[Rfam]
RNA sequence: GCCACGCCUAGCCCACGGCUGAUCCCCAAGGGCGAAAAGCGGGAGUCCUUCACCCGCCUGGCGCUGGCUCCCUUUGAAGG
Numbered sequence: 001g002c003c004a005c006g007c008c009u010a011g012c013c014c015a016c017g018g019c020u021g022a023u024c025c026c027c028a029a030g031g032g033c034g035a036a037a038a039g040c041g042g043g044a045g046u047c048c049u050u051c052a053c054c055c056g057c058c059u060g061g062c063g064c065u066g067g068c069u070c071c072c073u074u075u076g077a078a079g080g
Stems, first nucleotide, its partner, number of pairs: 001068004005063004011033004039057005047080005
Shown here is an 80-nucleotide sequence from Rhodoferax fermentans, a member of the family "int-alpA RNA". Rfam's curators write: Acidobacteria (1 example), Planctomycetes (1 example), Proteobacteria.